[Rfam]
RNA sequence: CUCUUAUCAAGAGAGGUGGAGGGACUGUGCCCGAUGAAGCCCGGCAACCGUCAGAUAAUCUGAAAAGGUGCCAAUUCCUGCAAAGUUGUGUAAUACGACUUUGAGAGAUGAGAG
Numbered sequence: 001c002u003c004u005u006a007u008c009a010a011g012a013g014a015g016g017u018g019g020a021g022g023g024a025c026u027g028u029g030c031c032c033g034a035u036g037a038a039g040c041c042c043g044g045c046a047a048c049c050g051u052c053a054g055a056u057a058a059u060c061u062g063a064a065a066a067g068g069u070g071c072c073a074a075u076u077c078c079u080g081c082a083a084a085g086u087u088g089u090g091u092a093a094u095a096c097g098a099c100u101u102u103g104a105g106a107g108a109u110g111a112g113a114g
Base pairs, nucleotide, nucleotide: 001114002113003112004111005110006109007108008107013042015041016040017039021032022031023030026080027079029077043072044071045070046069048068049067051063052062053061076106081103082102083101084100085099086098087097088096089095
This 114-nucleotide RNA sequence from Priestia filamentosa belongs to the Rfam family "SAM riboswitch aptamer (S box leader)". The SAM riboswitch is found upstream of a number of genes which code for proteins involved in methionine or cysteine biosynthesis in Gram-positive bacteria. The organism belongs to Priestia, within Bacteria.